The record is a 107-nucleotide RNA sequence from Pontibacillus chungwhensis, which matches "TPP riboswitch aptamer (THI element)" in Rfam. NCBI's taxonomy places the organism under Bacteria, Bacillati, Bacillota, Pontibacillus, Pontibacillus chungwhensis.
RNA sequence: GAAGUCCACUAGGGGCGCCCAUUUUUUGGCUGAGAUAAGGAGAAAUCCUUGGUCCCUUUGAACCUGAUCUGGUUAGUACCAGCGAAGGGAAGUGGAGUCGGUUGGAU
Numbered sequence: 001g002a003a004g005u006c007c008a009c010u011a012g013g014g015g016c017g018c019c020c021a022u023u024u025u026u027u028g029g030c031u032g033a034g035a036u037a038a039g040g041a042g043a044a045a046u047c048c049u050u051g052g053u054c055c056c057u058u059u060g061a062a063c064c065u066g067a068u069c070u071g072g073u074u075a076g077u078a079c080c081a082g083c084g085a086a087g088g089g090a091a092g093u094g095g096a097g098u099c100g101g102u103u104g105g106a107u
Stems, first nucleotide, its partner, number of pairs: 006095005011057004016051001017030003021026001037050005063088003069082004